A member of the RNA family "A. fumigatus sRNA Afu_309" from Coccidioides immitis, 331 nucleotides long. The organism belongs to Coccidioides immitis, within Eukaryota. On this family, see Jochl et al., Nucleic Acids Res 2008: "Small ncRNA transcriptome analysis from Aspergillus fumigatus suggests a novel mechanism for regulation of protein synthesis".
RNA sequence: ACCAAACCACAGAUCUGUGCCCAGCAAUCCUGUUCGAGCGGUCGACCAUCAUUCGUGGUGGUCUUCGGCUGUGUUUCGGUUGAUUCUGGACAGUUCGACGACCUAUGGAGCCAUCACUAUUUAAAUUUCAUGGUGUCAAUUUCCGGUCGACAGAUCUCAGAUUGAGAUGCAGCGGUCAGGAGUACACUCUGCCUUGAGCUCCCAUUUGGUGAGCUCGGUGAGAUGGCCUGAUAUGCUGAAGACGCCAUAUUCCACCUCCCUUCACCGAUACAUCCCUUUAUGGGAUUAGGCCGUCGGCUGAUGAGGUUAGGGAAAAACCAUGGCAGCCAAC
Numbered sequence: 001a002c003c004a005a006a007c008c009a010c011a012g013a014u015c016u017g018u019g020c021c022c023a024g025c026a027a028u029c030c031u032g033u034u035c036g037a038g039c040g041g042u043c044g045a046c047c048a049u050c051a052u053u054c055g056u057g058g059u060g061g062u063c064u065u066c067g068g069c070u071g072u073g074u075u076u077c078g079g080u081u082g083a084u085u086c087u088g089g090a091c092a093g094u095u096c097g098a099c100g101a102c103c104u105a106u107g108g109a110g111c112c113a114u115c116a117c118u119a120u121u122u123a124a125a126u127u128u129c130a131u132g133g134u135g136u137c138a139a140u141u142u143c144c145g146g147u148c149g150a151c152a153g154a155u156c157u158c159a160g161a162u163u164g165a166g167a168u169g170c171a172g173c174g175g176u177c178a179g180g181a182g183u184a185c186a187c188u189c190u191g192c193c194u195u196g197a198g199c200u201c202c203c204a205u206u207u208g209g210u211g212a213g214c215u216c217g218g219u220g221a222g223a224u225g226g227c228c229u230g231a232u233a234u235g236c237u238g239a240a241g242a243c244g245c246c247a248u249a250u251u252c253c254a255c256c257u258c259c260c261u262u263c264a265c266c267g268a269u270a271c272a273u274c275c276c277u278u279u280a281u282g283g284g285a286u287u288a289g290g291c292c293g294u295c296g297g298c299u300g301a302u303g304a305g306g307u308u309a310g311g312g313a314a315a316a317a318c319c320a321u322g323g324c325a326g327c328c329a330a331c
Base pairs, nucleotide, nucleotide: 011157012156013155014154015153016152017151018150019091021089022088023087024086026085027084028083029082030079031078032077035073036072037070038069039068041066044063045062046061048059049058050057051056099149100148101147102146103145106138107137108136110134111133112132169236170235171234175232176231177230178229179228180227190220191219192218193217196216197215198214199213200212201211202209203208241328243326244324245323246322247321248320257313258312259311260310261309264307265306266305289299290298291297292296
Annotation:
It is annotated as a small RNA.